[Rfam]
Nucleotides: 085
Base pairs, nucleotide, nucleotide: 007079008078009077010076011075012074013073014072015071016070017069018068021065022064024062025061026060027059028058
Number, partner (000 for none) and nucleotide at each position: 001000c002000a003000g004000a005000a006000a007079u008078g009077g010076g011075a012074g013073u014072u015071c016070c017069u018068u019000g020000c021065a022064g023000c024062c025061c026060a027059a028058a029000g030000c031000u032000u033000c034000c035000a036000g037000g038000a039000a040000a041000a042000a043000a044000c045000a046000a047000c048000u049000u050000c051000u052000u053000g054000c055000g056000g057000u058028u059027u060026u061025g062024g063000a064022c065021u066000g067000a068018a069017g070016g071015g072014a073013g074012c075011u076010c077009c078008u079007a080000c081000u082000u083000c084000u085000u